[Rfam]
RNA sequence: AUUAAAUCAGGCUUUCUCUUCCUGGUUCUUCCUGGAGUCAGGAAAGCAUGGAUUGAAAGGGUGAAAAAAAAAAUAC
Numbered sequence: 001a002u003u004a005a006a007u008c009a010g011g012c013u014u015u016c017u018c019u020u021c022c023u024g025g026u027u028c029u030u031c032c033u034g035g036a037g038u039c040a041g042g043a044a045a046g047c048a049u050g051g052a053u054u055g056a057a058a059g060g061g062u063g064a065a066a067a068a069a070a071a072a073a074u075a076c
Base pairs, nucleotide, nucleotide: 014059015058017056018055022051023050024049029044030043031042032041033040034039
RNA: mir-320 microRNA precursor family